[Rfam]
RNA sequence: CUUGGAAGCUGCAAUAAUGAACUAUGUAGGCAAAUAAAGUUUUUGCUUGCAGUAGCAGUCUUCCUAUAUUAAAAAUGGAGGUCUCUGUCUGGUUUUCAGCAGUUGGUAUAAACCAGAUCGUUCCCCUCCAAACAUU
Numbered sequence: 001c002u003u004g005g006a007a008g009c010u011g012c013a014a015u016a017a018u019g020a021a022c023u024a025u026g027u028a029g030g031c032a033a034a035u036a037a038a039g040u041u042u043u044u045g046c047u048u049g050c051a052g053u054a055g056c057a058g059u060c061u062u063c064c065u066a067u068a069u070u071a072a073a074a075a076u077g078g079a080g081g082u083c084u085c086u087g088u089c090u091g092g093u094u095u096u097c098a099g100c101a102g103u104u105g106g107u108a109u110a111a112a113c114c115a116g117a118u119c120g121u122u123c124c125c126c127u128c129c130a131a132a133c134a135u136u
Stems, first nucleotide, its partner, number of pairs: 004064003008059005025051007036042002077129005085120001087118003091114005
A member of the RNA family "Small Cajal body specific RNA 3" from Microcaecilia unicolor, 136 nucleotides long. The family's consensus secondary structure was predicted with RNAalifold. Taxonomically the source falls in Microcaecilia (Eukaryota, Craniata, Sarcopterygii, Gymnophiona). Its Rfam clan is "SCARNA3 clan". scaRNAs are a specific class of small nuclear RNAs which localise to the Cajal bodies and guide the modification of RNA polymerase II transcribed spliceosomal RNAs U1, U2, U4, U5 and U12.